[Rfam]
RNA sequence: AGAGCGAAAUUGCCGAAUCCGGUGACUCUGACCGGUACGGGGGACGCAACACCAUGGGGUGAAUCUGAUCUUCAGAGGGGCAACCUUUCAGCCCUAACCCGUCAACUAACCUCGGAGGCAGACGAAAGGGGCCUA
Numbered sequence: 001a002g003a004g005c006g007a008a009a010u011u012g013c014c015g016a017a018u019c020c021g022g023u024g025a026c027u028c029u030g031a032c033c034g035g036u037a038c039g040g041g042g043g044a045c046g047c048a049a050c051a052c053c054a055u056g057g058g059g060u061g062a063a064u065c066u067g068a069u070c071u072u073c074a075g076a077g078g079g080g081c082a083a084c085c086u087u088u089c090a091g092c093c094c095u096a097a098c099c100c101g102u103c104a105a106c107u108a109a110c111c112u113c114g115g116a117g118g119c120a121g122a123c124g125a126a127a128g129g130g131g132c133c134u135a
Base pairs, nucleotide, nucleotide: 011120012119013118014117019035020034021033022032023031038114039113040112041111042110047056048055057100058099059098065075066074067073068072078094079093080092081091
Shown here is a 135-nucleotide sequence from Sulfoacidibacillus thermotolerans, a member of the family "c-di-AMP riboswitch aptamer (ydaO/yuaA leader)". The match comes from Rfam's covariance-model search (87 bits).